[Rfam]
RNA sequence: AAAAGGGACAAACCCAGCUAUUGGGUUGUUUUGACCCAACGGUUGGGUUGUUUUGACCGCUGGGUCAAAACAACCCAAUAGCUGGGUUUGUCCCUUUUUA
Number, nucleotide and partner (000 for none) at each position: 001a098002a097003a000004a095005g094006g093007g092008a091009c090010a089011a088012a087013c086014c085015c084016a083017g082018c081019u080020a079021u078022u077023g076024g075025g074026u073027u072028g071029u070030u000031u000032u050033g049034a048035c047036c046037c045038a044039a043040c000041g000042g000043u039044u038045g037046g036047g035048u034049u033050g032051u000052u000053u000054u067055g066056a065057c064058c000059g000060c000061u000062g000063g000064g057065u056066c055067a054068a000069a000070a029071c028072a027073a026074c025075c024076c023077a022078a021079u020080a019081g018082c017083u016084g015085g014086g013087u012088u011089u010090g009091u008092c007093c006094c005095u004096u000097u002098u001099u000100a000